RNA sequence: ACCUAUCGAAACGGCUUUCUCCUCCUCCCAUAAGCCGUUCGACAGGGUCGACAACACUCCUCCUCCCAGUUGUCGAUCGAGUUUAUAAGCCCGACGGAUCCUCCCCCGUCGGGCUUUCUCG
Numbered sequence: 001a002c003c004u005a006u007c008g009a010a011a012c013g014g015c016u017u018u019c020u021c022c023u024c025c026u027c028c029c030a031u032a033a034g035c036c037g038u039u040c041g042a043c044a045g046g047g048u049c050g051a052c053a054a055c056a057c058u059c060c061u062c063c064u065c066c067c068a069g070u071u072g073u074c075g076a077u078c079g080a081g082u083u084u085a086u087a088a089g090c091c092c093g094a095c096g097g098a099u100c101c102u103c104c105c106c107c108g109u110c111g112g113g114c115u116u117u118c119u120c121g
Stems, first nucleotide, its partner, number of pairs: 007041003011038007046078010087116011
Record summary:
Rfam assigns this 121-nucleotide sequence from Rhizobium leguminosarum to the family "Alphaproteobacterial ar14". A reference for the family is del Val et al. (2012), "A survey of sRNA families in alpha-proteobacteria", RNA Biol. Smr14C2 was renamed NfeR1 (Nodule Formation Efficiency RNA) highly expressed in salt stress and during the symbiotic interaction on legume roots.